Source information
This 349-nucleotide sequence from Helicobacter canis belongs to the Rfam family "Bacterial RNase P class A". The match comes from Rfam's covariance-model search (267 bits).
RNA sequence: GCUGGUUUAGUGGUGGCUGCUCCUUGGCACAGGCUUAAGGGGAGGAAAGUCCGAGCUACAAAGACAGGAUUCCAUUUAACAAAUGGCUAGGGCGACCUAAGGGAAAGUGCAACAGAAAAGAACCGCCAAACAUAGAUUCUAGCUAGAAUCUAUGUUUGGUAAGGGUGAAAAGGUGGGGUAAGAGCCUACCGAUUUUACAGCAAUGUAAAAUGUCAAUGCAAACCCAAUCCGUAGCAAGAAGAGCGUGGUAAAUGUCUUAAAUUUGCUCUUUGCUUGAGGUAUAUUGUGAAAUAUACCCUAGAUAAAUAGCCACCCUUGACAGAACUCGGCUUAUACUAAACCAGCUCCU
Number, nucleotide and partner (000 for none) at each position: 001g345002c344003u343004g342005g341006u340007u339008u338009a337010g336011u000012g314013g313014u312015g311016g310017c309018u308019g000020c042021u041022c040023c039024u038025u037026g036027g035028c000029a000030c000031a000032g000033g000034c000035u027036u026037a025038a024039g023040g022041g021042g020043a000044g000045g000046a000047a332048a331049g330050u000051c329052c328053g327054a326055g325056c234057u233058a232059c231060a000061a000062a000063g257064a000065c000066a000067g230068g229069a228070u227071u226072c086073c085074a084075u083076u082077u000078a000079a000080c000081a000082a076083a075084u074085g073086g072087c101088u099089a098090g097091g096092g000093c000094g000095a000096c091097c090098u089099a088100a000101g087102g225103g224104a000105a000106a000107g223108u222109g219110c218111a217112a000113c000114a000115g000116a000117a000118a000119a000120g000121a000122a000123c164124c163125g160126c159127c158128a157129a156130a155131c154132a153133u152134a151135g150136a149137u148138u147139c146140u145141a000142g000143c000144u000145a140146g139147a138148a137149u136150c135151u134152a133153u132154g131155u130156u129157u128158g127159g126160u125161a000162a000163g124164g123165g000166u000167g000168a000169a000170a000171a000172g190173g189174u188175g187176g186177g185178g000179u000180a000181a000182g000183a000184g000185c177186c176187u175188a174189c173190c172191g214192a211193u210194u209195u208196u207197a206198c205199a204200g000201c000202a000203a000204u199205g198206u197207a196208a195209a194210a193211u192212g000213u000214c191215a000216a000217u111218g110219c109220a000221a000222a108223c107224c103225c102226a071227a070228u069229c068230c067231g059232u058233a057234g056235c000236a000237a000238g271239a270240a269241g268242a000243g000244c000245g000246u000247g000248g000249u000250a262251a000252a000253u259254g000255u000256c000257u063258u000259a253260a000261a000262u250263u000264u000265g000266c000267u000268c241269u240270u239271u238272g000273c000274u000275u000276g000277a000278g297279g296280u295281a294282u293283a292284u291285u290286g000287u000288g000289a000290a285291a284292u283293a282294u281295a280296c279297c278298c000299u000300a000301g000302a000303u000304a000305a000306a000307u000308a018309g017310c016311c015312a014313c013314c012315c000316u000317u000318g000319a000320c000321a000322g000323a000324a000325c055326u054327c053328g052329g051330c049331u048332u047333a000334u000335a000336c010337u009338a008339a007340a006341c005342c004343a003344g002345c001346u000347c000348c000349u000